[Rfam]
RNA: DUF805b RNA
RNA sequence: ACUGGGGAAGCUGAAAACCAUAUAGAGUAGGCA
Numbered sequence: 001a002c003u004g005g006g007g008a009a010g011c012u013g014a015a016a017a018c019c020a021u022a023u024a025g026a027g028u029a030g031g032c033a
Stems, first nucleotide, its partner, number of pairs: 003020003010032003